[Rfam]
RNA: Small nucleolar RNA SNORA73 family
Organism: Polypterus senegalus
RNA sequence: CCAACGUGGACAUCCUAUGAGGUUGCUCUCAUGUGGCUCUGUCUUUAUGGUGUCAAGGAGCAUAGUGCCUCUGUGUACAAUGAUGUAUAAUCCUGUUCCAUAACGUUGGACAGCAUGCUUGUCCCCAGCUUUUGUGCUGGUGAGGGCAGCGGCCUGUAUAUUCCUACAUCUAUCCAGAGUCUUCUGUUUGGGUGGAUAAACCAUGCAGGUCACAAAU
Dot-bracket structure: ((((((((((((.((...(((....)))......))...)))))..((((.....(((((.(((((.............))..))).)..))))...)))).)))))))...........................................(((((((..........((((((..............)))))).......)))))))........